A member of the RNA family "Fluoride riboswitch aptamer (crcB RNA motif)" from a Plautia stali symbiont, 70 nucleotides long. On this family, see Baker et al., Science 2012: "Widespread genetic switches and toxicity resistance proteins for fluoride".
[Rfam]
RNA sequence: GGACGGCAGGGUGAUGGCGUUCCACCUUUCCCAACCGUUCCGUUCCGGAACUGAUGACGCCUGAUGUGAC
Number, nucleotide and partner (000 for none) at each position: 001g000002g000003a000004c000005g000006g000007c000008a000009g000010g026011g025012u024013g023014a000015u000016g061017g060018c059019g058020u057021u056022c000023c013024a012025c011026c010027u000028u000029u000030c000031c000032c000033a000034a000035c000036c000037g051038u050039u049040c048041c000042g000043u000044u000045c000046c000047g000048g040049a039050a038051c037052u000053g000054a000055u000056g021057a020058c019059g018060c017061c016062u000063g000064a000065u000066g000067u000068g000069a000070c000